[Rfam]
Description: The family of this 78-nucleotide sequence from Danio rerio is "mir-181 microRNA precursor family". The base pairs follow the family's consensus structure, which was predicted with PFOLD. It is one of the family's seed sequences. The literature on the family includes a 2003 paper in RNA by Lagos-Quintana et al., "New microRNAs from mouse and human". The family has 157 seed sequences and 3,490 matches in Rfam 15.1.
RNA sequence: GGGUCCUGAUUCACAUUCAUUGCUGUCGGUGGGUUUUAUCUCUUCGACUCGCCGGACAAUGAAUGAGAACUACGGCUC
Dot-bracket structure: .((((.((.....(((((((((...((((((.(((..........))).)))))).))))))))).....)).)).))
About this RNA
Lineage of the source: Eukaryota > Clupeocephala > Otophysi > Cyprinoidei > Danio.